[Rfam]
U4atac minor spliceosomal RNA: a 130-nucleotide RNA from Tetranychus urticae. The family has 61 seed sequences and 1,648 matches in Rfam 15.1. It scores 70 bits against the family's covariance model. Gene Ontology terms of the family: U4atac snRNP, mRNA 5'-splice site recognition and pre-mRNA 5'-splice site binding. The family is grouped with related families in Rfam's "U4 clan". Taxonomically the source falls in Tetranychus (Eukaryota, Opisthokonta, Ecdysozoa, Prostigmata).
RNA sequence: AUAGUCCUUGUCAAGGUGGAGGUAAUCAUUCAAUGAAGGUUUACUGAGGGUGAUUUUGCUGAAACCUACACACUAAACACCGCAUCACUUUAGCUUCGUUAAGCUAAUAGCUGAUGCAAUUUUUGCAAGC
Numbered sequence: 001a002u003a004g005u006c007c008u009u010g011u012c013a014a015g016g017u018g019g020a021g022g023u024a025a026u027c028a029u030u031c032a033a034u035g036a037a038g039g040u041u042u043a044c045u046g047a048g049g050g051u052g053a054u055u056u057u058g059c060u061g062a063a064a065c066c067u068a069c070a071c072a073c074u075a076a077a078c079a080c081c082g083c084a085u086c087a088c089u090u091u092a093g094c095u096u097c098g099u100u101a102a103g104c105u106a107a108u109a110g111c112u113g114a115u116g117c118a119a120u121u122u123u124u125g126c127a128a129g130c
Base pairs, nucleotide, nucleotide: 005020006019007018008016009015021059024056025054026053027052028051029050030049031048037045038044082117083116084115085114086113087112090107091106092105093104094103095102
About this RNA: The family's consensus secondary structure is taken from published work.